[Rfam]
RNA sequence: CACCGAGACCGACCUUGGGACAGGAGCGGGGGAACCAGGUAAGACGCCGCGCACCGCCCCGUGCACGGCUUGGGGUGAAGCCGCCUCCGCGCGGCCGGGCCACCUCCCGGUCCGAACCCGACAGCUCACCUCGCAGGCGUCGGAGAGGGA
Dot-bracket structure: (.((....((............)).((((((....(((((...........................)))))(((.....((((......))))..((((.........))))...))).........)))))).)).)...........
Numbered sequence: 001c002a003c004c005g006a007g008a009c010c011g012a013c014c015u016u017g018g019g020a021c022a023g024g025a026g027c028g029g030g031g032g033a034a035c036c037a038g039g040u041a042a043g044a045c046g047c048c049g050c051g052c053a054c055c056g057c058c059c060c061g062u063g064c065a066c067g068g069c070u071u072g073g074g075g076u077g078a079a080g081c082c083g084c085c086u087c088c089g090c091g092c093g094g095c096c097g098g099g100c101c102a103c104c105u106c107c108c109g110g111u112c113c114g115a116a117c118c119c120g121a122c123a124g125c126u127c128a129c130c131u132c133g134c135a136g137g138c139g140u141c142g143g144a145g146a147g148g149g150a
Stems, first nucleotide, its partner, number of pairs: 001139001003137002009024002026134006036072005073119003081094004097113004